[Rfam]
Notes
mir-15 microRNA precursor family: an 83-nucleotide RNA sequence from Salvelinus namaycush. Lineage of the source: Eukaryota > Vertebrata > Salmonidae > Salmoninae > Salvelinus. About the family: This family represents the related mir-15a and mir-15b sequences. In humans miR-15a and miR-16 are clustered within 0.5 kb at 13q14. This region has been shown to be deleted in more than half of B cell chronic lymphocytic leukaemias (CLL). For this family Rfam cites "Identification of novel genes coding for small expressed RNAs" (Lagos-Quintana et al., Science, 2001). The match comes from Rfam's covariance-model search (57 bits). Clan: mir-15 clan.
RNA sequence: CCUUGCAGUGCUGAAGCAGCACAGAAUGGUUUGUGGGUAAUCCAGGAAUACAGGCUGUACUGUGCUGUUACAGUAACGCCUGG
Numbered sequence: 001c002c003u004u005g006c007a008g009u010g011c012u013g014a015a016g017c018a019g020c021a022c023a024g025a026a027u028g029g030u031u032u033g034u035g036g037g038u039a040a041u042c043c044a045g046g047a048a049u050a051c052a053g054g055c056u057g058u059a060c061u062g063u064g065c066u067g068u069u070a071c072a073g074u075a076a077c078g079c080c081u082g083g
Base pairs, nucleotide, nucleotide: 001083002082005079006078013071015069016068017067018066019065020064021063022062023061024060026058027057028056029055030054031053032052033051034050035049